[Rfam]
RNA sequence: AUGAAGCGAUUAGCCUCCAAGGUUAAGGCCAGACUACUGCCCCUAGAGGAAGCCUGUGGGUUAACACCACCCCACUCCGCCCGUUCCAAGUACGGAUACGGCGCGAAGGAAGUUCGCUCUCUC
Numbered sequence: 001a002u003g004a005a006g007c008g009a010u011u012a013g014c015c016u017c018c019a020a021g022g023u024u025a026a027g028g029c030c031a032g033a034c035u036a037c038u039g040c041c042c043c044u045a046g047a048g049g050a051a052g053c054c055u056g057u058g059g060g061u062u063a064a065c066a067c068c069a070c071c072c073c074a075c076u077c078c079g080c081c082c083g084u085u086c087c088a089a090g091u092a093c094g095g096a097u098a099c100g101g102c103g104c105g106a107a108g109g110a111a112g113u114u115c116g117c118u119c120u121c122u123c
Stems, first nucleotide, its partner, number of pairs: 006120001008118001010116001012114003016110003022065004028057002032053001035050001037048002068103001070101002074097001076095002079091002
RNA: Hepatitis C virus J7880 RNA
Organism: Orthohepacivirus hominis